The family of this 152-nucleotide sequence from Anisodus acutangulus is "U4 spliceosomal RNA". It is annotated as a spliceosomal small nuclear RNA. Rfam describes the family as follows. U4 small nuclear RNA (U4 snRNA) is a component of the major U2-dependent spliceosome. The family has 177 seed sequences and 32,178 matches in Rfam 15.1. The source organism's lineage runs through Eukaryota, Streptophyta, Embryophyta, Solanaceae and Anisodus. The family's consensus secondary structure is taken from published work.
RNA sequence: AUUUUUGCGCUUGGGUCAAUGACGCAGCUAGUGAGGUACUAAGUGAGGUGCGUCUAUUGCUGGUUCAAAACUAUUUCCAAACCCCCUCUUGGCUUGGGUUCUGCCUUGGCCGUCAAGAAUUUUUGGAAGGGCUCCCCUCGGGGUUAUAUGCC
Numbered sequence: 001a002u003u004u005u006u007g008c009g010c011u012u013g014g015g016u017c018a019a020u021g022a023c024g025c026a027g028c029u030a031g032u033g034a035g036g037u038a039c040u041a042a043g044u045g046a047g048g049u050g051c052g053u054c055u056a057u058u059g060c061u062g063g064u065u066c067a068a069a070a071c072u073a074u075u076u077c078c079a080a081a082c083c084c085c086c087u088c089u090u091g092g093c094u095u096g097g098g099u100u101c102u103g104c105c106u107u108g109g110c111c112g113u114c115a116a117g118a119a120u121u122u123u124u125g126g127a128a129g130g131g132c133u134c135c136c137c138u139c140g141g142g143g144u145u146a147u148a149u150g151c152c
Stems, first nucleotide, its partner, number of pairs: 021054005027049003035044001037042001086117002090112005096106003130152003